[Rfam]
RNA sequence: CCGCUCGCUCCGGGGUGCGCGCCACAGCGCUGAGAUGGUGAACCAGCACCGAACCCGUGAACUUGAUCCGGCCAGUACCGGCGAAAGAAGAGCUGCCGCCACAGCC
Number, nucleotide and partner (000 for none) at each position: 001c000002c000003g000004c000005u000006c000007g093008c092009u091010c090011c057012g056013g055014g054015g000016u051017g030018c029019g028020c027021g000022c000023c000024a000025c000026a000027g020028c019029g018030c017031u000032g000033a000034g000035a000036u000037g050038g049039u048040g047041a000042a000043c000044c000045a000046g000047c040048a039049c038050c037051g016052a000053a000054c014055c013056c012057g011058u000059g000060a000061a000062c087063u086064u085065g000066a000067u000068c081069c080070g079071g078072c000073c000074a000075g000076u000077a000078c071079c070080g069081g068082c000083g000084a000085a064086a063087g062088a000089a000090g010091a009092g008093c007094u000095g000096c000097c000098g000099c000100c000101a000102c000103a000104g000105c000106c000
The family of this 106-nucleotide RNA is "TPP riboswitch aptamer (THI element)".
It scores 57 bits against the family's covariance model.
About the family: Vitamin B(1) in its active form thiamin pyrophosphate (TPP) is an essential coenzyme that is synthesised by coupling of pyrimidine and thiazole moieties in bacteria. The previously detected thiamin-regulatory element, thi box was extended, resulting in a new, highly conserved RNA secondary structure, the THI element, which is widely distributed in eubacteria and also occurs in some archaea. Analysis of operon structures identified a large number of new candidate thiamin-regulated genes, mostly transporters, in various prokaryotic organisms.
The family's consensus secondary structure is taken from published work.